[Rfam]
RNA sequence: CUUGAGCGACCCCAGCCACAGCGGCCGCUCCUCCGGGCGGUCCUGACCGUAGGUGGCCAAAACCGCCUGCGCCUC
Numbered sequence: 001c002u003u004g005a006g007c008g009a010c011c012c013c014a015g016c017c018a019c020a021g022c023g024g025c026c027g028c029u030c031c032u033c034c035g036g037g038c039g040g041u042c043c044u045g046a047c048c049g050u051a052g053g054u055g056g057c058c059a060a061a062a063c064c065g066c067c068u069g070c071g072c073c074u075c
Stems, first nucleotide, its partner, number of pairs: 015025003031071001033069001038065002044059002047056003
The record is a 75-nucleotide RNA sequence from Microbispora triticiradicis, which matches "ASpks TB sRNA" in Rfam. Pairs were carried over by alignment from the consensus structure, which is taken from published work. Rfam classes the family as an antisense RNA.